The record is an 89-nucleotide RNA sequence from Cryobacterium psychrotolerans, which matches "ZMP/ZTP riboswitch aptamer (pfl RNA motif)" in Rfam. Taxonomically the source falls in Cryobacterium (Bacteria, Actinomycetota, Micrococcales, Microbacteriaceae).

RNA sequence: CGUUCGUGUCGCAACUGGCGUAGCACGAAGAUGGGUCACCAUCGGGGAGCGACUGACACGGUUAGUGGCCGCACGCCUGGGCCGCAGCA
Dot-bracket structure: ..(....(((((..(([[[[[.........((((....))))..))..)))))....).......(((((..]]]]]..))))).....